[Rfam]
RNA sequence: AAACUGAAAAGGCAAACCUGUUGAAAAGCAGGGACGCAAAGUUAUGGGCCUGUCCGCACGAAUGCGAAUGGCUGCCAGACUGCCAGG
Numbered sequence: 001a002a003a004c005u006g007a008a009a010a011g012g013c014a015a016a017c018c019u020g021u022u023g024a025a026a027a028g029c030a031g032g033g034a035c036g037c038a039a040a041g042u043u044a045u046g047g048g049c050c051u052g053u054c055c056g057c058a059c060g061a062a063u064g065c066g067a068a069u070g071g072c073u074g075c076c077a078g079a080c081u082g083c084c085a086g087g
Stems, first nucleotide, its partner, number of pairs: 012037002017032006040081004045077003048072003055066004
RNA: c-di-GMP-I riboswitch aptamer
Organism: Guptibacillus hwajinpoensis